RNA sequence: ACAGAAUUCCCCGGAGAAUGAAACUCCGGGAAGGUAGAAUAAAAUAAAAUUAAGAAUUAAGAUAAGUAGUAGGAAUGGACGAACAUGUUUCAAU
Numbered sequence: 001a002c003a004g005a006a007u008u009c010c011c012c013g014g015a016g017a018a019u020g021a022a023a024c025u026c027c028g029g030g031a032a033g034g035u036a037g038a039a040u041a042a043a044a045u046a047a048a049a050u051u052a053a054g055a056a057u058u059a060a061g062a063u064a065a066g067u068a069g070u071a072g073g074a075a076u077g078g079a080c081g082a083a084c085a086u087g088u089u090u091c092a093a094u
Stems, first nucleotide, its partner, number of pairs: 007032003011029006077090004
This 94-nucleotide sequence from Pandanus tectorius belongs to the Rfam family "Plastid-rpl20 3UTR RNA". On this family, see Richter et al., Plant Commun 2023: "Retrograde signaling in plants: A critical review focusing on the GUN pathway and beyond". About the family: Plastid rpl20 is a non-coding RNA (ncRNA) recognised in plastids. It was found in the three prime untranslated region (3UTR) of rpl20 gene, it presence in the 3UTR region sugest a role in transcript maduration. The family's RNA type in Rfam is cis-regulatory element.